[Rfam]
RNA sequence: GAAGCCUUCAGGGGGAGCCAUAUGGCUGAGAGUGAACAGAUUUCUGUUCAGACCCUUUGAACCUGUUAGUUAGUACUAGCGUAGGGAUAGUGGCUUUUUUGAUG
Numbered sequence: 001g002a003a004g005c006c007u008u009c010a011g012g013g014g015g016a017g018c019c020a021u022a023u024g025g026c027u028g029a030g031a032g033u034g035a036a037c038a039g040a041u042u043u044c045u046g047u048u049c050a051g052a053c054c055c056u057u058u059g060a061a062c063c064u065g066u067u068a069g070u071u072a073g074u075a076c077u078a079g080c081g082u083a084g085g086g087a088u089a090g091u092g093g094c095u096u097u098u099u100u101g102a103u104g
Stems, first nucleotide, its partner, number of pairs: 006092001008090001010088001011056004017026003033050007062085004066079004
Rfam assigns this 104-nucleotide sequence from Lentibacillus cibarius to the family "TPP riboswitch aptamer (THI element)".
Rfam's curators write: Vitamin B(1) in its active form thiamin pyrophosphate (TPP) is an essential coenzyme that is synthesised by coupling of pyrimidine and thiazole moieties in bacteria.